[Rfam]
Rfam assigns this 325-nucleotide RNA from Fusarium kuroshium to the family "Group I catalytic intron". Rfam links the family to the GO term Group I intron splicing.
RNA sequence: CAAGCGGCGUAAAAGGCGCUCGCUAGUGGGAGACCUGCACCUGCAGGCCGCCCGCGACACCGUCAAAUUGCGGGAAGUCCCUAAAGCUCACGCUACCAAGCAGCCCCCGAAAGGGAGGCUGUGGCCGGGGUAAUGACCUAGGGUACGGUAAAAACGUGUGAGAUGCAACAAUGGGUAAUCCGCAGCCAAGCUCUAAGUCUGGCGCCCUCGGGCGCUGGAUAUGGGUGCAGUUCAACGACUAAAUGGUGGUGGGUUCCGGCGGGAACGCGUACUGCGCACCCCGCCCGGGCUUAAGAUAUAGUCUGGCCCCCUGUGAAAAUGGGGG
Numbered sequence: 001c002a003a004g005c006g007g008c009g010u011a012a013a014a015g016g017c018g019c020u021c022g023c024u025a026g027u028g029g030g031a032g033a034c035c036u037g038c039a040c041c042u043g044c045a046g047g048c049c050g051c052c053c054g055c056g057a058c059a060c061c062g063u064c065a066a067a068u069u070g071c072g073g074g075a076a077g078u079c080c081c082u083a084a085a086g087c088u089c090a091c092g093c094u095a096c097c098a099a100g101c102a103g104c105c106c107c108c109g110a111a112a113g114g115g116a117g118g119c120u121g122u123g124g125c126c127g128g129g130g131u132a133a134u135g136a137c138c139u140a141g142g143g144u145a146c147g148g149u150a151a152a153a154a155c156g157u158g159u160g161a162g163a164u165g166c167a168a169c170a171a172u173g174g175g176u177a178a179u180c181c182g183c184a185g186c187c188a189a190g191c192u193c194u195a196a197g198u199c200u201g202g203c204g205c206c207c208u209c210g211g212g213c214g215c216u217g218g219a220u221a222u223g224g225g226u227g228c229a230g231u232u233c234a235a236c237g238a239c240u241a242a243a244u245g246g247u248g249g250u251g252g253g254u255u256c257c258g259g260c261g262g263g264a265a266c267g268c269g270u271a272c273u274g275c276g277c278a279c280c281c282c283g284c285c286c287g288g289g290c291u292u293a294a295g296a297u298a299u300a301g302u303c304u305g306g307c308c309c310c311c312u313g314u315g316a317a318a319a320u321g322g323g324g325g
Stems, first nucleotide, its partner, number of pairs: 001022001003020004027037003058251005064245002069184006079175003185231002190226004198219009235304001237303005253290004258285006310323005